[Rfam]
RNA sequence: AGGCAGCCCCUUUGCCCAAUCCACUGGCACUGGAGGUGUUGUUUUGCUCGGAGAAUAACGUCUAGCUUUUGCUCUUCAGAUUGGCUGAGAGGAAGGGGGCUUCUCCCUUUCUCCCUGAGGCUGAUCUAGUAGGCUUAAGUACAUC
Numbered sequence: 001a002g003g004c005a006g007c008c009c010c011u012u013u014g015c016c017c018a019a020u021c022c023a024c025u026g027g028c029a030c031u032g033g034a035g036g037u038g039u040u041g042u043u044u045u046g047c048u049c050g051g052a053g054a055a056u057a058a059c060g061u062c063u064a065g066c067u068u069u070u071g072c073u074c075u076u077c078a079g080a081u082u083g084g085c086u087g088a089g090a091g092g093a094a095g096g097g098g099g100c101u102u103c104u105c106c107c108u109u110u111c112u113c114c115c116u117g118a119g120g121c122u123g124a125u126c127u128a129g130u131a132g133g134c135u136u137a138a139g140u141a142c143a144u145c
Stems, first nucleotide, its partner, number of pairs: 002040004007036002009033002013029004066139003071134003078127005084121003089113009
Shown here is a 145-nucleotide RNA from Phoenix dactylifera, a member of the family "Small nucleolar RNA snoR77". Rfam classes the family as an H/ACA-box small nucleolar RNA. The family has 5 seed sequences and 649 matches in Rfam 15.1.